[Rfam]
A member of the RNA family "RT-2 RNA", 225 nucleotides long. The sequence is in the family's curated seed alignment.
RNA sequence: UAUGGCCAGACAAAGUAAACCGGGCGACCGGUCGAAAUCAGCGCCUUUAUGGAAGGAGUGGACGACCUUCCCGAAAGGGUAAAUUCGCGCCUCGACGCAAGCGGGCGAACGCUUCUUGCAUGGCGUGUGCCGGAGUAAAACACGUUUCAUGCCCGAUCUUGCUACGCAGUUUAGACGCUCCCCUACAAGAAAUUGUGCGAGGUGUACUUUUUUAUUAUGAACAGU
Numbered sequence: 001u002a003u004g005g006c007c008a009g010a011c012a013a014a015g016u017a018a019a020c021c022g023g024g025c026g027a028c029c030g031g032u033c034g035a036a037a038u039c040a041g042c043g044c045c046u047u048u049a050u051g052g053a054a055g056g057a058g059u060g061g062a063c064g065a066c067c068u069u070c071c072c073g074a075a076a077g078g079g080u081a082a083a084u085u086c087g088c089g090c091c092u093c094g095a096c097g098c099a100a101g102c103g104g105g106c107g108a109a110c111g112c113u114u115c116u117u118g119c120a121u122g123g124c125g126u127g128u129g130c131c132g133g134a135g136u137a138a139a140a141c142a143c144g145u146u147u148c149a150u151g152c153c154c155g156a157u158c159u160u161g162c163u164a165c166g167c168a169g170u171u172u173a174g175a176c177g178c179u180c181c182c183c184u185a186c187a188a189g190a191a192a193u194u195g196u197g198c199g200a201g202g203u204g205u206a207c208u209u210u211u212u213u214a215u216u217a218u219g220a221a222c223a224g225u
Base pairs, nucleotide, nucleotide: 004045005044006043019032020031021030022029023028070079071078072077087205088204089203090202091201092200093199094198096197097162098161099160100159101158102155103154104153105152106151111119112118122146123145124144125143126142127141128140166196167195168194169193170192173184174183